[Rfam]
Rfam assigns this 86-nucleotide RNA sequence from Triticum urartu to the family "Small nucleolar RNA Z102/R77". Gene Ontology terms of the family: nucleolus and RNA processing. Its Rfam clan is "SNORD44 clan". Lineage of the source: Eukaryota > Spermatophyta > Magnoliopsida > Petrosaviidae > Triticum.

RNA sequence: AGAUGAGAUUAUGAAUGCAAUUAAUUUCCUUAUUGGUUUGAUUGGCUGAUAUGAUGGCCCAAAUAGUGAACUGAAUGUGAUGAUGC
Dot-bracket structure: ..((...................................(...((((........)))))......................))..